[Rfam]
RNA: mir-124 microRNA precursor family
Organism: Canis lupus
RNA sequence: GUGUUCACAGCGGACCUUGAUUUAAAUGUCCAUACAAUUAAGGCACGCGGUGAAUGCCA
Numbered sequence: 001g002u003g004u005u006c007a008c009a010g011c012g013g014a015c016c017u018u019g020a021u022u023u024a025a026a027u028g029u030c031c032a033u034a035c036a037a038u039u040a041a042g043g044c045a046c047g048c049g050g051u052g053a054a055u056g057c058c059a
Base pairs, nucleotide, nucleotide: 001057002056003055004054005053006052007051008050010048011047012046015043016042017041018040019039020038021037022036